Overview: S10-Clostridia ribosomal protein leader: a 103-nucleotide RNA from Butyrivibrio fibrisolvens. The source organism's lineage runs through Bacteria, Bacillota, Clostridia, Butyrivibrio and Butyrivibrio fibrisolvens. It is one of the family's seed sequences. The literature on the family includes a 2020 paper in BMC Microbiol by Eckert and Weinberg, "Discovery of 20 novel ribosomal leader candidates in bacteria and archaea".

RNA sequence: UGAUAGCGUUGAAGCGUGAGGUUGCCACAUUAUCCAGUGAUGUGGGUUUUCCGUGGAGCGAAUGUCAGUAGGCUGCAUAGCGGCCACAAAAUCAUGACGACAA
Numbered sequence: 001u002g003a004u005a006g007c008g009u010u011g012a013a014g015c016g017u018g019a020g021g022u023u024g025c026c027a028c029a030u031u032a033u034c035c036a037g038u039g040a041u042g043u044g045g046g047u048u049u050u051c052c053g054u055g056g057a058g059c060g061a062a063u064g065u066c067a068g069u070a071g072g073c074u075g076c077a078u079a080g081c082g083g084c085c086a087c088a089a090a091a092u093c094a095u096g097a098c099g100a101c102a103a
Stems, first nucleotide, its partner, number of pairs: 014054003018051004025045008063102004072084004